[Rfam]
RNA sequence: UACAAACCUCGUUAGGUGAGGCUCCUGUAUGGAGAUACGCUGCUACCCAGAAACGUCUACAGACGCCAAUGGGUUAGCAAAAACAAUCGAUUUAAGGUUGUUUUUAAUGUAGCUGGAUUCGUCCUAUGCCAUACAGUGCUAAAGCUCAACGAUUGAGGGUUGAU
Numbered sequence: 001u002a003c004a005a006a007c008c009u010c011g012u013u014a015g016g017u018g019a020g021g022c023u024c025c026u027g028u029a030u031g032g033a034g035a036u037a038c039g040c041u042g043c044u045a046c047c048c049a050g051a052a053a054c055g056u057c058u059a060c061a062g063a064c065g066c067c068a069a070u071g072g073g074u075u076a077g078c079a080a081a082a083a084c085a086a087u088c089g090a091u092u093u094a095a096g097g098u099u100g101u102u103u104u105u106a107a108u109g110u111a112g113c114u115g116g117a118u119u120c121g122u123c124c125u126a127u128g129c130c131a132u133a134c135a136g137u138g139c140u141a142a143a144g145c146u147c148a149a150c151g152a153u154u155g156a157g158g159g160u161u162g163a164u
Base pairs, nucleotide, nucleotide: 005160007158008157009156010155011150012149013095015146016145017144020140021139022138025136026135027134028133029132030131031130032129039113040112041111042110043109045074046073047072048071049070054065055064056063057062080104081103082102083101086098087097088096115124116123117122
This 164-nucleotide RNA sequence from Savagea serpentis belongs to the Rfam family "M-box riboswitch aptamer (ykoK leader)". M-box riboswitch, also know as ykoK leader is described as a metaloregulatory RNA that sense divalent metals and function as a genetic control element of genes related to divalent metal transport in bacteria. A search with the family's covariance model found it, with a score of 147 bits. The organism belongs to Savagea, within Bacteria.